A member of the RNA family "Group I catalytic intron" from Alternaria burnsii, 302 nucleotides long.
Rfam links the family to the GO term Group I intron splicing.
The source organism's lineage runs through Eukaryota, Fungi, Pezizomycotina, Pleosporineae and Alternaria sect. Alternaria.
Group I catalytic introns are large self-splicing ribozymes. They catalyse their own excision from mRNA, tRNA and rRNA precursors in a wide range of organisms. The core secondary structure consists of 9 paired regions (P1-P9). These fold to essentially two domains - the P4-P6 domain (formed from the stacking of P5, P4, P6 and P6a helices) and the P3-P9 domain (formed from the P8, P3, P7 and P9 helices). The secondary structure mark-up for this family represents only this conserved core. Group I catalytic introns often have long ORFs inserted in loop regions. The window size for this search is chosen to minimise search time and catch the small examples. A larger window size will find more matches.

RNA sequence: AAAAAGGUAGAGCAAACCUCUAUCUAGUCUCAUUAAGGCGAAAUCUUCAAAAUGCGGGGAAAUCUUAAAGACAAAUCUACCAAAUUAAUAUAGUAAUAUGAUUAAUGGAACAGGUAAUGACUCGUUGUAUGGUAAAAACGGUUUGUAUGAAGAAAUGAAAUAGAUAAUCCGCAGCUAAACAUCAAUAUAGAAAUAUUGGUAAACAGUUCAUCGACUAAAUGGAGGUUGGUUUAUAAUUAUAUAAUUAUAUAAUUAUAUAAUUAUUUGCUUAAGGUAUAGUCAGGCAUAAUAGAAAAAUUAUG
Numbered sequence: 001a002a003a004a005a006g007g008u009a010g011a012g013c014a015a016a017c018c019u020c021u022a023u024c025u026a027g028u029c030u031c032a033u034u035a036a037g038g039c040g041a042a043a044u045c046u047u048c049a050a051a052a053u054g055c056g057g058g059g060a061a062a063u064c065u066u067a068a069a070g071a072c073a074a075a076u077c078u079a080c081c082a083a084a085u086u087a088a089u090a091u092a093g094u095a096a097u098a099u100g101a102u103u104a105a106u107g108g109a110a111c112a113g114g115u116a117a118u119g120a121c122u123c124g125u126u127g128u129a130u131g132g133u134a135a136a137a138a139c140g141g142u143u144u145g146u147a148u149g150a151a152g153a154a155a156u157g158a159a160a161u162a163g164a165u166a167a168u169c170c171g172c173a174g175c176u177a178a179a180c181a182u183c184a185a186u187a188u189a190g191a192a193a194u195a196u197u198g199g200u201a202a203a204c205a206g207u208u209c210a211u212c213g214a215c216u217a218a219a220u221g222g223a224g225g226u227u228g229g230u231u232u233a234u235a236a237u238u239a240u241a242u243a244a245u246u247a248u249a250u251a252a253u254u255a256u257a258u259a260a261u262u263a264u265u266u267g268c269u270u271a272a273g274g275u276a277u278a279g280u281c282a283g284g285c286a287u288a289a290u291a292g293a294a295a296a297a298u299u300a301u302g
Stems, first nucleotide, its partner, number of pairs: 005019003042227005048221002053173006063164003174207002181200005211282001213281005229268002233264005287300004
Annotation:
The family's consensus secondary structure is taken from published work.